[Rfam]
RNA sequence: CAAUUUUGUUAUUAGGUAAGUAUCCUAACGGGCUUUUUAGGCUAGUAACAUUUAUUAAGAGGAGUGCUGUUAAUGGCCCGUAUCGCUGGCAUUAACAUUCCUGAU
Numbered sequence: 001c002a003a004u005u006u007u008g009u010u011a012u013u014a015g016g017u018a019a020g021u022a023u024c025c026u027a028a029c030g031g032g033c034u035u036u037u038u039a040g041g042c043u044a045g046u047a048a049c050a051u052u053u054a055u056u057a058a059g060a061g062g063a064g065u066g067c068u069g070u071u072a073a074u075g076g077c078c079c080g081u082a083u084c085g086c087u088g089g090c091a092u093u094a095a096c097a098u099u100c101c102u103g104a105u
Base pairs, nucleotide, nucleotide: 007050008049009048010047011046012045013044024089025088029080030079031078032077037104038103039102
The family of this 105-nucleotide sequence from Glaciecola punicea is "Alpha operon ribosome binding site". The organism belongs to Glaciecola punicea, within Bacteria. The bacterial alpha operon ribosome binding site is surrounded by this complex pseudoknotted structure. Translation of the mRNA produces 4 ribosomal protein products, one of which (S4) acts as a translational repressor by binding to the nested pseudoknot region. The mechanism of repression is thought to involve a conformational switch in the pseudoknot region and ribosome entrapment.